[Rfam]
RNA: Z6 small nucleolar RNA
RNA sequence: UGCUGGUGCUCAAGCGUCCCCUCUCGGAACACUGGGCCUUGCCAGGGGUAAGCA
Number, nucleotide and partner (000 for none) at each position: 001u054002g053003c052004u051005g000006g000007u000008g000009c000010u000011c000012a000013a000014g000015c000016g000017u000018c000019c000020c000021c000022u000023c000024u000025c000026g000027g000028a000029a000030c000031a000032c000033u000034g000035g000036g000037c000038c000039u000040u000041g000042c000043c000044a000045g000046g000047g000048g000049u000050a000051a004052g003053c002054a001